Shown here is a 235-nucleotide RNA from Candidatus Uabimicrobium amorphum, a member of the family "Group II catalytic intron D1-D4-6". A search with the family's covariance model found it, with a score of 120 bits. Its family is annotated with Group II intron splicing in the Gene Ontology. The base pairs follow the family's consensus structure. About the family: Group II introns are found in rRNA, tRNA and mRNA of organelles in fungi, plants and protists, and also in mRNA in bacteria. Lineage of the source: Bacteria > Pseudomonadati > Planctomycetota > Candidatus Uabimicrobiaceae > Candidatus Uabimicrobium.

RNA sequence: ACAAUCCAGCACGUGUAAAGGUUAACCACUGGCACGGAACGGAACCAUGCGCGUAAGGAGGUAACAAAUUACGUGAAGCCAUGGGAAAGGAGUUUGUCAGCCGCAACGCAAGUGAAGGUAUUGAGCCCCGUAAUAUCUCUCUAACGUAAAGGGCCAGGAGUUUCAUUUCUCUGAAGCCAGAAUUGUAGCAUUCGUAAGGGUGAGAAUGCAACAACUUUACCGGGGUCUAAGGCCG
Numbered sequence: 001a002c003a004a005u006c007c008a009g010c011a012c013g014u015g016u017a018a019a020g021g022u023u024a025a026c027c028a029c030u031g032g033c034a035c036g037g038a039a040c041g042g043a044a045c046c047a048u049g050c051g052c053g054u055a056a057g058g059a060g061g062u063a064a065c066a067a068a069u070u071a072c073g074u075g076a077a078g079c080c081a082u083g084g085g086a087a088a089g090g091a092g093u094u095u096g097u098c099a100g101c102c103g104c105a106a107c108g109c110a111a112g113u114g115a116a117g118g119u120a121u122u123g124a125g126c127c128c129c130g131u132a133a134u135a136u137c138u139c140u141c142u143a144a145c146g147u148a149a150a151g152g153g154c155c156a157g158g159a160g161u162u163u164c165a166u167u168u169c170u171c172u173g174a175a176g177c178c179a180g181a182a183u184u185g186u187a188g189c190a191u192u193c194g195u196a197a198g199g200g201u202g203a204g205a206a207u208g209c210a211a212c213a214a215c216u217u218u219a220c221c222g223g224g225g226u227c228u229a230a231g232g233c234c235g
Stems, first nucleotide, its partner, number of pairs: 012036005020030003023203001025201002040089001045084003049079001050075007060065001122229001123227001125226006146220006152178003157172004183214004188209006